[Rfam]
RNA sequence: GGGGUGCACAAUGGACUUACCUCCACGUGGUGUACCCUGGACAACGUAUACUUAUACGGCAAAAAAGUCCAU
Numbered sequence: 001g002g003g004g005u006g007c008a009c010a011a012u013g014g015a016c017u018u019a020c021c022u023c024c025a026c027g028u029g030g031u032g033u034a035c036c037c038u039g040g041a042c043a044a045c046g047u048a049u050a051c052u053u054a055u056a057c058g059g060c061a062a063a064a065a066a067g068u069c070c071a072u
Stems, first nucleotide, its partner, number of pairs: 001038007019031003045058005
Annotation:
HDV ribozyme from F. prausnitzii: a 72-nucleotide RNA sequence from Rodentolepis nana. Pairs were carried over by alignment from the consensus structure, which is taken from published work. The organism belongs to Rodentolepis, within Eukaryota. Rfam links the family to the GO term catalytic activity. For this family Rfam cites "Widespread occurrence of self-cleaving ribozymes" (Webb et al., Science, 2009).